[Rfam]
Shown here is a 126-nucleotide RNA from Mangrovibacter sp. MFB070, a member of the family "RtT RNA". A reference for the family is Bosl and Kersten (1991), "A novel RNA product of the tyrT operon of Escherichia coli", Nucleic Acids Res. It scores 98 bits against the family's covariance model. Lineage of the source: Bacteria > Gammaproteobacteria > Enterobacterales > Enterobacteriaceae > Mangrovibacter. It is annotated as a cis-regulatory element.
RNA sequence: GCUAUGUGUAAAAAGUGCAGAAUGAGAACCUGCACAGGUUCGAGCCGAGCGAAGCGAGACAACGUUGCCUCUGGCAACGGCCCGCAGGGUGAGGCCAACGGCCGAAUCAUCCUGCACGACCCACCC
Numbered sequence: 001g002c003u004a005u006g007u008g009u010a011a012a013a014a015g016u017g018c019a020g021a022a023u024g025a026g027a028a029c030c031u032g033c034a035c036a037g038g039u040u041c042g043a044g045c046c047g048a049g050c051g052a053a054g055c056g057a058g059a060c061a062a063c064g065u066u067g068c069c070u071c072u073g074g075c076a077a078c079g080g081c082c083c084g085c086a087g088g089g090u091g092a093g094g095c096c097a098a099c100g101g102c103c104g105a106a107u108c109a110u111c112c113u114g115c116a117c118g119a120c121c122c123a124c125c126c
Base pairs, nucleotide, nucleotide: 015117016116017115018114019113020112023109033091034090039086041084042083046056047055063079064078065077066076067075068074